[Rfam]
Rfam assigns this 68-nucleotide RNA from Ophiophagus hannah to the family "mir-33 microRNA precursor family". The base pairs follow the family's consensus structure, which was predicted with PFOLD. Its family is annotated with gene silencing by miRNA and RISC complex in the Gene Ontology. Rfam's curators put it in the seed alignment. A reference for the family is Li et al. (2009), "Direct sequencing and expression analysis of a large number of miRNAs in Aedes aegypti and a multi-species survey of novel mosquito miRNAs", BMC Genomics. The source organism's lineage runs through Eukaryota, Metazoa, Vertebrata, Serpentes and Ophiophagus.

RNA sequence: CGGUGGUGCAUUGUAGUUGCAUUGCAUGUGCAAGUGAAGAUGUGCAAUGCCCCUUCAGUGCAGCCCUG
Numbered sequence: 001c002g003g004u005g006g007u008g009c010a011u012u013g014u015a016g017u018u019g020c021a022u023u024g025c026a027u028g029u030g031c032a033a034g035u036g037a038a039g040a041u042g043u044g045c046a047a048u049g050c051c052c053c054u055u056c057a058g059u060g061c062a063g064c065c066c067u068g
Stems, first nucleotide, its partner, number of pairs: 001068003006064001007062007015054002019050001021048007